[Rfam]
RNA sequence: AUAAUAUAGUAGGGGGUCAUUGUAGAAGCGUGCUCGUCGCGACCCCUGCCAGCUCUUUCCAGGGCUGCCAUUCUACA
Numbered sequence: 001a002u003a004a005u006a007u008a009g010u011a012g013g014g015g016g017u018c019a020u021u022g023u024a025g026a027a028g029c030g031u032g033c034u035c036g037u038c039g040c041g042a043c044c045c046c047u048g049c050c051a052g053c054u055c056u057u058u059c060c061a062g063g064g065c066u067g068c069c070a071u072u073c074u075a076c077a
Stems, first nucleotide, its partner, number of pairs: 013046006021077007028040003050067007
RNA: Mammalian CPEB3 ribozyme